The record is a 53-nucleotide RNA from Aurantimonas sp. Leaf443, which matches "sul1 RNA" in Rfam. The family's RNA type in Rfam is riboswitch. The family has 54 seed sequences and 519 matches in Rfam 15.1. A search with the family's covariance model found it, with a score of 61 bits.
RNA sequence: CAAGGACCCGCCCGCGCGGGUGGCUAUGCCGGGCGCCUAUCCCUCGGCCAAUC
Numbered sequence: 001c002a003a004g005g006a007c008c009c010g011c012c013c014g015c016g017c018g019g020g021u022g023g024c025u026a027u028g029c030c031g032g033g034c035g036c037c038u039a040u041c042c043c044u045c046g047g048c049c050a051a052u053c
Stems, first nucleotide, its partner, number of pairs: 006021006028048006
Pairs were carried over by alignment from the consensus structure, which is taken from published work.